[Rfam]
RNA sequence: UAGAAUAAUGUAGAUAAGGGAAGUCGGUAAAAUAGAUCUGUAACUUCGGGAUAAGGAUUGGCUCUAAGGGUUGGGCAUGUAGGGCCUUGGGCGGAUGCCUCGGGGGUAGGCUGCUUCUAGCCGGGUAACCGGCCGGCGGCGGCUAGCACCCGUGCGUUGAUGCCCUUGGUAGGCUUUGGCCGUCCGGCGUGCGGUUAAUAACCAACUUAGAACUGGUAUGGAUAAGGGGAAUCUGAUUGUCUAAUUAAAAUAUAGCAUUGCGAUGGCUAGAAAGUGGUGUUGACGCAAUGUGAUUUCUGCCUAGUGCUCUGAAUGUUAAAGUGAAGUAAUUCAACUAAGCGCGGGUAAACGGCGGGAGUAACUAUGACUCUCUUAAGGUAGCUAAAUGCCUUGUUAUCUAAUUAGUGACGCGUAUGAAUGGAUUAACGAGAUUCCUACUGUCCCUAUUUACUAUUUAGUGAAACCAUAGCUAAGGGAAUGGGCUUGGUAGA
Dot-bracket structure: ((((.....(((((((.(((..............(((((....(....).....)))))((.(((((((((((.((((((.(((((..(((.....((.(((((.((.(((((((.((.(((((....))))).)).))))))).)).)))).).)).....)))..))).............)).))))))......)))))..)))))).))(...).......(((((((((..(((.........)))..((((((((...((((.....)))).....))))))))...(((.(((..((((((.(..(((.....((((....)))).....))))))))..)))))((((((.......))))))(...)...............(((((.......)))))..........)))....)).)))))))....))).)))))))..))))............(((((........)))))....
RNA: Eukaryotic large subunit ribosomal RNA, nucleotides 1858 to 2348
Organism: Fusarium kuroshium